[Rfam]
RNA sequence: UAAAAGUGCAGAUAGAGAUAUGCUGUAUACCUGCAUAACCGAAUUACGUUAAAAUGACAUGUACUAUUGUCAGCCGCAGGGACCGCCAUAAGGCGGUUUUCGUAUUUU
Numbered sequence: 001u002a003a004a005a006g007u008g009c010a011g012a013u014a015g016a017g018a019u020a021u022g023c024u025g026u027a028u029a030c031c032u033g034c035a036u037a038a039c040c041g042a043a044u045u046a047c048g049u050u051a052a053a054a055u056g057a058c059a060u061g062u063a064c065u066a067u068u069g070u071c072a073g074c075c076g077c078a079g080g081g082a083c084c085g086c087c088a089u090a091a092g093g094c095g096g097u098u099u100u101c102g103u104a105u106u107u108u
Stems, first nucleotide, its partner, number of pairs: 007027005012021003030080005039073001041071001042050003054070004059065001081098007
RNA: DUF3800-I RNA
Organism: Hungatella hathewayi